[Rfam]
Bacterial small subunit ribosomal RNA: a 361-nucleotide part of an RNA from Candidatus Pinguicoccus supinus. The family is grouped with related families in Rfam's "SSU clan".

Nucleotides: 361
Base pairs, nucleotide, nucleotide: 001324002323003322009321011199012198013197014196016193018192019191020190022086023085024083025082026081027080028079030078031077032074033073034072035071036070037069038068039067045063046062047061048060049059050058051057090186091185092184094181095180096179101175102174103173104172105171106170107169108152112148113147114146115145116144117143118142119141123134124133125132160167161166204245205244206243207242208241209240213239214238218234219233220232221231256320257319258318259317260316261315264298265297266296267295268294269293270292271291272290273289274288302309303308326353327352335346336345337344338343
Number, partner (000 for none) and nucleotide at each position: 001324g002323g003322c004000g005000u006000a007000a008000a009321g010000a011199g012198u013197a014196c015000g016193u017000a018192g019191g020190c021000u022086g023085u024083u025082a026081u027080g028079u029000a030078a031077g032074u033073u034072a035071a036070a037069a038068g039067u040000u041000a042000a043000a044000u045063u046062u047061u048060a049059a050058a051057u052000c053000u054000a055000a056000a057051g058050u059049u060048u061047a062046a063045a064000c065000u066000u067039g068038c069037u070036u071035u072034u073033a074032a075000a076000a077031c078030u079028a080027c081026a082025u083024a084000u085023a086022c087000u088000a089000g090186a091185g092184u093000u094181u095180u096179a097000a098000a099000g100000a101175g102174g103173u104172a105171a106170g107169u108152g109000g110000a111000a112148u113147u114146u115145c116144a117143a118142g119141u120000g121000u122000a123134g124133c125132g126000g127000u128000g129000a130000a131000a132125u133124g134123c135000g136000u137000a138000g139000a140000u141119a142118u143117u144116u145115g146114a147113a148112g149000g150000a151000a152108c153000a154000c155000c156000a157000a158000u159000g160167g161166c162000g163000a164000a165000g166161g167160c168000a169107a170106c171105u172104u173103a174102c175101u176000a177000g178000g179096u180095a181094a182000u183000a184092a185091c186090u187000g188000a189000c190020g191019c192018u193016a194000a195000a196014g197013u198012a199011c200000g201000a202000a203000a204245g205244u206243a207242u208241a209240g210000g211000g212000a213239g214238c215000a216000a217000a218234a219233g220232g221231g222000a223000u224000u225000a226000g227000a228000u229000a230000c231221c232220c233219c234218u235000g236000u237000a238214g239213u240209c241208u242207a243206u244205a245204c246000u247000g248000u249000a250000a251000a252000c253000g254000a255000u256320g257319u258318a259317c260316a261315u262000u263000u264298g265297a266296u267295c268294u269293u270292a271291g272290g273289a274288a275000u276000a277000u278000u279000u280000g281000a282000c283000u284000u285000u286000u287000u288274u289273u290272c291271u292270u293269a294268g295267g296266a297265u298264c299000g300000u301000a302309g303308c304000u305000a306000a307000c308303g309302c310000g311000u312000u313000a314000a315261a316260u317259g318258u319257a320256c321009c322003g323002c324001c325000u326353g327352a328000a329000a330000a331000g332000u333000a334000c335346g336345g337344u338343c339000g340000c341000a342000a343338g344337a345336c346335u347000a348000a349000a350000a351000c352327u353326c354000a355000a356000a357000g358000g359000a360000a361000u